Rfam assigns this 100-nucleotide RNA from Salinarchaeum sp. Harcht-Bsk1 to the family "L4-Archaeoglobi ribosomal protein leades". By type it is a cis-regulatory leader.
RNA sequence: CUGAUGGGCGCGUACGGGUCAAUUGCGGCGUGCAACACCCGAUCUCCCUGCCGGUUCCCCACGAACGGGACAUCGGCGAGGGGGAGCGUGUGACCGUCAG
Numbered sequence: 001c002u003g004a005u006g007g008g009c010g011c012g013u014a015c016g017g018g019u020c021a022a023u024u025g026c027g028g029c030g031u032g033c034a035a036c037a038c039c040c041g042a043u044c045u046c047c048c049u050g051c052c053g054g055u056u057c058c059c060c061a062c063g064a065a066c067g068g069g070a071c072a073u074c075g076g077c078g079a080g081g082g083g084g085a086g087c088g089u090g091u092g093a094c095c096g097u098c099a100g
Stems, first nucleotide, its partner, number of pairs: 001100005008091006015041004023035005043085007050077006